[Rfam]
RNA sequence: UGGCGGAAGGACACCACAAGGAGUGGAUUGUGCGGCUCAACUUGACUCAACACGGGAAAUCUUACCAGGGUCUGUAUAUGUGAGACUGUCCCAUUUAUGGUGGUACACGAUAAUAUACUGAGUGGUGCAUGGCCGUUUUCAACACGUGGGGUGACCUGUCAGGUUUAUUCCGGUAACGUGUGAGGUCACAGUAUUAAUAAGUAUUUUAAUAGACAGCUAAUGGUAAAUUAGAGGAAGUGUGACGAUAACAGGUCAGUGAUGCCCUUAGAUACCCUGGGCUGCACGCGCAAUACAUUGAGUAAGUCAUUUACAAUAGUAAUUUUGAAACUUACUCGCUACUGGGAUCAUCCUUUGUAAUUGGGAUGUGAACGUGGAAUUCCUAGUAAUCGUAGCUCACUAAGUUACGAUGAAUGUGUCCCUGUUCUUUGCACACACCGCCCGUCGCUAUCUAAGAUGGAUGUUGAUAUGAAAUUGCUGCUUGAAUGUGAGGUACUUGAGUAUUAACAACUAGAUAAGAUAUAAGUCGUAACAAGGCUGCUAUAGAAGAAUCUGUGGCAAGAUCAUAC
Number, nucleotide and partner (000 for none) at each position: 001u432002g431003g429004c428005g427006g000007a426008a425009g424010g423011a422012c421013a420014c000015c000016a416017c415018a000019a000020g380021g379022a378023g377024u376025g293026g000027a291028u290029u289030g288031u287032g286033c285034g284035g282036c281037u000038c000039a000040a000041c056042u055043u054044g053045a000046c000047u000048c000049a000050a000051c000052a000053c044054g043055g042056g041057a000058a000059a000060u000061c000062u000063u000064a000065c277066c276067a275068g274069g273070g272071u271072c000073u000074g000075u117076a116077u115078a114079u113080g000081u000082g000083a000084g000085a000086c000087u107088g106089u105090c000091c000092c000093a000094u000095u000096u000097a000098u000099g000100g000101u000102g000103g000104u000105a089106c088107a087108c000109g000110a000111u000112a000113a079114u078115a077116u076117a075118c000119u000120g000121a265122g264123u000124g263125g262126u261127g260128c000129a000130u259131g257132g253133c252134c251135g249136u248137u247138u000139u000140c000141a000142a181143c180144a179145c178146g177147u176148g157149g156150g155151g000152u000153g000154a000155c150156c149157u148158g000159u000160c173161a000162g171163g170164u000165u000166u000167a000168u000169u000170c163171c162172g000173g160174u000175a000176a147177c146178g145179u144180g143181u142182g000183a000184g000185g000186u000187c241188a240189c239190a238191g000192u000193a000194u000195u000196a000197a000198u000199a000200a000201g000202u000203a000204u211205u000206u000207u000208a000209a000210u000211a204212g000213a000214c234215a000216g000217c231218u230219a229220a228221u227222g000223g000224u000225a000226a000227a221228u220229u219230a218231g217232a000233g000234g214235a000236a000237g000238u190239g189240u188241g187242a000243c000244g000245a000246u000247a137248a136249c135250a000251g134252g133253u132254c000255a000256g000257u131258g000259a130260u127261g126262c125263c124264c122265u121266u000267a000268g000269a000270u000271a071272c070273c069274c068275u067276g066277g065278g000279c000280u000281g036282c035283a000284c034285g033286c032287g031288c030289a029290a028291u027292a000293c025294a000295u000296u000297g334298a333299g332300u331301a330302a329303g328304u327305c000306a000307u000308u000309u000310a000311c000312a000313a000314u000315a000316g000317u000318a000319a000320u000321u000322u000323u000324g000325a000326a000327a304328c303329u302330u301331a300332c299333u298334c297335g000336c000337u000338a000339c000340u000341g370342g000343g000344a000345u000346c365347a364348u363349c362350c361351u360352u000353u000354g000355u000356a000357a000358u000359u000360g351361g350362g349363a348364u347365g346366u000367g000368a000369a000370c341371g000372u000373g000374g000375a000376a024377u023378u022379c021380c020381u000382a000383g000384u000385a000386a408387u407388c406389g405390u404391a403392g402393c401394u000395c000396a000397c000398u000399a000400a000401g393402u392403u391404a390405c389406g388407a387408u386409g000410a000411a000412u000413g000414u000415g017416u016417c000418c000419c000420u013421g012422u011423u010424c009425u008426u007427u005428g004429c003430a000431c002432a001433c000434a000435c000436c000437g530438c000439c000440c526441g525442u000443c523444g000445c000446u519447a518448u517449c516450u515451a000452a513453g000454a000455u510456g509457g508458a000459u506460g505461u504462u503463g502464a501465u500466a499467u498468g000469a000470a495471a494472u000473u492474g491475c490476u489477g000478c000479u000480u000481g000482a000483a000484u000485g000486u000487g000488a000489g476490g475491u474492a473493c000494u471495u470496g000497a000498g467499u466500a465501u464502u463503a462504a461505c460506a459507a000508c457509u456510a455511g000512a000513u452514a000515a450516g449517a448518u447519a446520u000521a000522a000523g443524u000525c441526g440527u000528a000529a000530c437531a000532a000533g000534g000535c000536u557537g556538c555539u554540a553541u552542a551543g550544a549545a000546g000547a000548a000549u544550c543551u542552g541553u540554g539555g538556c537557a536558a000559g000560a000561u000562c000563a000564u000565a000566c000

Record summary:
Shown here is a 566-nucleotide part of an RNA from Tubulinosema acridophagus, a member of the family "Microsporidia small subunit ribosomal RNA". Rfam's curators put it in the seed alignment. Taxonomically the source falls in Tubulinosema (Eukaryota, Opisthokonta, Fungi, Tubulinosematidae).